The record is a 109-nucleotide RNA sequence from Hordeum vulgare, which matches "Small nucleolar RNA Z279/snoR105/snoR108" in Rfam.
[Rfam]
RNA sequence: GGGAAAUGACGAGAGUGGUAUAGGCUUGCUAAAUUAUACGAGAGGGGUGCCCGCCCCCAAUAAGCUUGUUACGAUACUGGGGCAUCUCUCUGAUUUAUCAUCUGAUCCU
Numbered sequence: 001g002g003g004a005a006a007u008g009a010c011g012a013g014a015g016u017g018g019u020a021u022a023g024g025c026u027u028g029c030u031a032a033a034u035u036a037u038a039c040g041a042g043a044g045g046g047g048u049g050c051c052c053g054c055c056c057c058c059a060a061u062a063a064g065c066u067u068g069u070u071a072c073g074a075u076a077c078u079g080g081g082g083c084a085u086c087u088c089u090c091u092g093a094u095u096u097a098u099c100a101u102c103u104g105a106u107c108c109u
Stems, first nucleotide, its partner, number of pairs: 001109004016100005025042004044088008066080003
The family's RNA type in Rfam is C/D-box small nucleolar RNA. This family includes the plant snoRNAs known as Z279, snoR105 and snoR108. Its family is annotated with RNA processing and nucleolus in the Gene Ontology. Clan: snoU13 clan. Lineage of the source: Eukaryota > Streptophyta > Magnoliopsida > Hordeum > Hordeum vulgare.